[Rfam]
Nucleotides: 080
Stems, first nucleotide, its partner, number of pairs: 014048003018045004025037005055079004061075001063073002
Number, partner (000 for none) and nucleotide at each position: 001000u002000u003000u004000a005000u006000g007000c008000g009000a010000u011000g012000a013000a014048g015047a016046g017000g018045a019044a020043g021042g022000u023000u024000g025037c026036u027035u028034a029033u030000c031000c032000c033029a034028u035027g036026a037025g038000g039000a040000a041000a042021u043020u044019u045018u046016c047015u048014c049000g050000g051000a052000g053000u054000a055079u056078g057077u058076c059000c060000a061075g062000a063073u064072u065000g066000c067000a068000a069000a070000u071000c072064g073063g074000g075061c076058g077057a078056c079055a080000g
This 80-nucleotide sequence from Alkalibacter saccharofermentans belongs to the Rfam family "S10-Clostridia ribosomal protein leader". On this family, see Eckert and Weinberg, BMC Microbiol 2020: "Discovery of 20 novel ribosomal leader candidates in bacteria and archaea". The match comes from Rfam's covariance-model search (44 bits).